[Rfam]
RNA sequence: UUCAGUGAAGGUUCGACGCAGGAGUGGCAGGGACGGGGGACCCGUGCAUGCGGUCCGGACAGGGCCUCUGGGUAAAGCGCCGCCACGGCGGCGCCGGGUGAUCUCCGCCCGAACCCGACAGCUAACCCCGUAGGUGCAGGAGAGGCAGU
Numbered sequence: 001u002u003c004a005g006u007g008a009a010g011g012u013u014c015g016a017c018g019c020a021g022g023a024g025u026g027g028c029a030g031g032g033a034c035g036g037g038g039g040a041c042c043c044g045u046g047c048a049u050g051c052g053g054u055c056c057g058g059a060c061a062g063g064g065c066c067u068c069u070g071g072g073u074a075a076a077g078c079g080c081c082g083c084c085a086c087g088g089c090g091g092c093g094c095c096g097g098g099u100g101a102u103c104u105c106c107g108c109c110c111g112a113a114c115c116c117g118a119c120a121g122c123u124a125a126c127c128c129c130g131u132a133g134g135u136g137c138a139g140g141a142g143a144g145g146c147a148g149u
Stems, first nucleotide, its partner, number of pairs: 002031002033131006044068001070116003078093004096110004

A member of the RNA family "c-di-AMP riboswitch aptamer (ydaO/yuaA leader)" from Georgenia yuyongxinii, 149 nucleotides long. Lineage of the source: Bacteria > Bacillati > Actinomycetes > Allobogoriellales > Georgenia. Pairs were carried over by alignment from the consensus structure.